[Rfam]
cspA thermoregulator: a 430-nucleotide RNA from Moellerella wisconsensis. The source organism's lineage runs through Bacteria, Gammaproteobacteria, Enterobacterales, Morganellaceae and Moellerella wisconsensis. Rfam links the family to the GO terms regulation of translation and response to temperature stimulus. The family's RNA type in Rfam is RNA thermoregulator. The family has 15 seed sequences and 2,094 matches in Rfam 15.1. A reference for the family is Giuliodori et al. (2010), "The cspA mRNA is a thermosensor that modulates translation of the cold-shock protein CspA", Mol Cell. It scores 213 bits against the family's covariance model.
RNA sequence: UCCUAUUUGAUGUACGAUUACUGAGUUUAGUGUGUUGUAUAAAUGUUAUCCUUGAUAGCUUUUGACCGCUUCCUUCUUAGUGUUUUUUCGAUUAAAUAGUCGACUCUGGCCAGUAUCUAUGCCAAACGGCAAGUUUUUUUGAUGUUAUAUAGGAAAAGUCAAAUGUCUGACAAAAUGAAAGGUCAAGUUAAGUGGUUCAACGAGUCUAAAGGCUUCGGUUUCAUCACUCCAGCUGAUGGUAGCAAAGACGUAUUCGUCCACUUCUCUGCCAUUCAAACCAAUGGUUUUAAAACUCUGGCAGAAGGCCAGCAAGUUGAAUUUUCAAUUGAAAAUGGCGCUAAAGGCCCAGCAGCUGCUAACGUAACUGCUAUCUAAGCUCUGCUUCGAUACUAAUUUCUAAAGCCCGUCACUUUUUAGUGACGGGCUUUUU
Numbered sequence: 001u002c003c004u005a006u007u008u009g010a011u012g013u014a015c016g017a018u019u020a021c022u023g024a025g026u027u028u029a030g031u032g033u034g035u036u037g038u039a040u041a042a043a044u045g046u047u048a049u050c051c052u053u054g055a056u057a058g059c060u061u062u063u064g065a066c067c068g069c070u071u072c073c074u075u076c077u078u079a080g081u082g083u084u085u086u087u088u089c090g091a092u093u094a095a096a097u098a099g100u101c102g103a104c105u106c107u108g109g110c111c112a113g114u115a116u117c118u119a120u121g122c123c124a125a126a127c128g129g130c131a132a133g134u135u136u137u138u139u140u141g142a143u144g145u146u147a148u149a150u151a152g153g154a155a156a157a158g159u160c161a162a163a164u165g166u167c168u169g170a171c172a173a174a175a176u177g178a179a180a181g182g183u184c185a186a187g188u189u190a191a192g193u194g195g196u197u198c199a200a201c202g203a204g205u206c207u208a209a210a211g212g213c214u215u216c217g218g219u220u221u222c223a224u225c226a227c228u229c230c231a232g233c234u235g236a237u238g239g240u241a242g243c244a245a246a247g248a249c250g251u252a253u254u255c256g257u258c259c260a261c262u263u264c265u266c267u268g269c270c271a272u273u274c275a276a277a278c279c280a281a282u283g284g285u286u287u288u289a290a291a292a293c294u295c296u297g298g299c300a301g302a303a304g305g306c307c308a309g310c311a312a313g314u315u316g317a318a319u320u321u322u323c324a325a326u327u328g329a330a331a332a333u334g335g336c337g338c339u340a341a342a343g344g345c346c347c348a349g350c351a352g353c354u355g356c357u358a359a360c361g362u363a364a365c366u367g368c369u370a371u372c373u374a375a376g377c378u379c380u381g382c383u384u385c386g387a388u389a390c391u392a393a394u395u396u397c398u399a400a401a402g403c404c405c406g407u408c409a410c411u412u413u414u415u416a417g418u419g420a421c422g423g424g425c426u427u428u429u430u
Base pairs, nucleotide, nucleotide: 004020005019007017008016009015026231029228030227031226032225042221045220047218049217050212051211052210053209055207057205060202062200063199064198065197068196069195070194075165077163078162080160088153089152091150093149094148096114097113099111121130122129123128167182168181234328235327236326237325239323247255248254258316260314261313262312263311266309267308268307269305270304273298274297275296277294282291333348334347335346337345338344339343349368350367351366352365357364373386375384376383400427401426402425403424404423405422406421407420408419409418410417411416